[Rfam]
RNA: Nucleoid-associated noncoding RNA 4 (CssrE)
RNA sequence: GGCCAGAUAAGGCGUUCACGCCGCAUCUGGCGUCUGGAGCAAAUGCCUGAUGCGACGCUUGUCGCGUCUUAUCAGGCU
Numbered sequence: 001g002g003c004c005a006g007a008u009a010a011g012g013c014g015u016u017c018a019c020g021c022c023g024c025a026u027c028u029g030g031c032g033u034c035u036g037g038a039g040c041a042a043a044u045g046c047c048u049g050a051u052g053c054g055a056c057g058c059u060u061g062u063c064g065c066g067u068c069u070u071a072u073c074a075g076g077c078u
Stems, first nucleotide, its partner, number of pairs: 002031007011022004045077008054068005